A member of the RNA family "Manganese Mn2+ riboswitch aptamer (yybP-ykoY)" from Sodalis praecaptivus, 184 nucleotides long. A reference for the family is Price et al. (2015), "Mn(2+)-sensing mechanisms of yybP-ykoY orphan riboswitches", Mol Cell. Lineage of the source: Bacteria > Pseudomonadota > Gammaproteobacteria > Enterobacterales > Sodalis. From the family's description: This RNA was originally discovered in E. coli during a large scale screen and was named SraF. The family was later found to exist upstream of related families of protein genes in many bacteria, including the the yybP and ykoK genes in B. subtilis.

RNA sequence: UGCGCCGUCAUUAGGGAGUAGCCUAUUUUUGCCUUGUAGCGAAAAUGCCCGUGUCAACAUACUCGUUUCUUUGGUAAACGUGGUGCGGGCGGCCUUCAUCGGCUGGCGAGACUAUAGACAUGCGGACCUGUCGGUAAGGUUGGGGGGACAGGAAAGCGUGGAUAUGGGCGCCCAGCCGAGGCUU
Numbered sequence: 001u002g003c004g005c006c007g008u009c010a011u012u013a014g015g016g017a018g019u020a021g022c023c024u025a026u027u028u029u030u031g032c033c034u035u036g037u038a039g040c041g042a043a044a045a046u047g048c049c050c051g052u053g054u055c056a057a058c059a060u061a062c063u064c065g066u067u068u069c070u071u072u073g074g075u076a077a078a079c080g081u082g083g084u085g086c087g088g089g090c091g092g093c094c095u096u097c098a099u100c101g102g103c104u105g106g107c108g109a110g111a112c113u114a115u116a117g118a119c120a121u122g123c124g125g126a127c128c129u130g131u132c133g134g135u136a137a138g139g140u141u142g143g144g145g146g147g148a149c150a151g152g153a154a155a156g157c158g159u160g161g162a163u164a165u166g167g168g169c170g171c172c173c174a175g176c177c178g179a180g181g182c183u184u
Base pairs, nucleotide, nucleotide: 026045027044028043029042030041047090048089049088050087051086052085053084054083055082056081064080065079066078067077068076091183092182093181094180095179096178